[Rfam]
RNA: FMN riboswitch aptamer (RFN element)
RNA sequence: ACAAAACUUCAGGGUCGGGUGAAAUUCCCAAUCGGCGGUAUACCCCGCAAGCCAAGGAUGGCAGGAACCGGUGAAACUCCGGUGGCGACAGUAAAGUCUGGAUGGAAGAAGUUGUUU
Numbered sequence: 001a002c003a004a005a006a007c008u009u010c011a012g013g014g015u016c017g018g019g020u021g022a023a024a025u026u027c028c029c030a031a032u033c034g035g036c037g038g039u040a041u042a043c044c045c046c047g048c049a050a051g052c053c054a055a056g057g058a059u060g061g062c063a064g065g066a067a068c069c070g071g072u073g074a075a076a077c078u079c080c081g082g083u084g085g086c087g088a089c090a091g092u093a094a095a096g097u098c099u100g101g102a103u104g105g106a107a108g109a110a111g112u113u114g115u116u117u
Stems, first nucleotide, its partner, number of pairs: 003115001005113006017029003031097002033087002035048004043085002051062003067083005089100003
Dot-bracket structure: ..(.((((((......(((.......))).[[((((((....[[))))..(((......)))....(((((.......)))))]])).(((....]]))).......)))))).)..